[Rfam]
RNA sequence: CUGGGUCAAAUGCAGUAACGAACGUGAACCGGACCCAUGUAAAAGGAAAGAUACUUCCCUGGCGAAAGCCUGAAACUGCCCGCUGAUGAUCCCGCGCGGACGCUGCUUGCAUGGCGGGGGUAUUGUGCUAACCCCGUUUCAUGCGCUGGAUCGAAGCAGUUUAGACGCACACCAACACCAUAACUGUACGGAGGGCGAAUACUUUUCUAUGACAAG
Numbered sequence: 001c002u003g004g005g006u007c008a009a010a011u012g013c014a015g016u017a018a019c020g021a022a023c024g025u026g027a028a029c030c031g032g033a034c035c036c037a038u039g040u041a042a043a044a045g046g047a048a049a050g051a052u053a054c055u056u057c058c059c060u061g062g063c064g065a066a067a068g069c070c071u072g073a074a075a076c077u078g079c080c081c082g083c084u085g086a087u088g089a090u091c092c093c094g095c096g097c098g099g100a101c102g103c104u105g106c107u108u109g110c111a112u113g114g115c116g117g118g119g120g121u122a123u124u125g126u127g128c129u130a131a132c133c134c135c136g137u138u139u140c141a142u143g144c145g146c147u148g149g150a151u152c153g154a155a156g157c158a159g160u161u162u163a164g165a166c167g168c169a170c171a172c173c174a175a176c177a178c179c180a181u182a183a184c185u186g187u188a189c190g191g192a193g194g195g196c197g198a199a200u201a202c203u204u205u206u207c208u209a210u211g212a213c214a215a216g
Stems, first nucleotide, its partner, number of pairs: 004035004019024001061070003078196004083191003087188001088152005094146004102110002113138007156187005162182001164173001
A member of the RNA family "RT-2 RNA", 216 nucleotides long.
Rfam classes the family as a small RNA.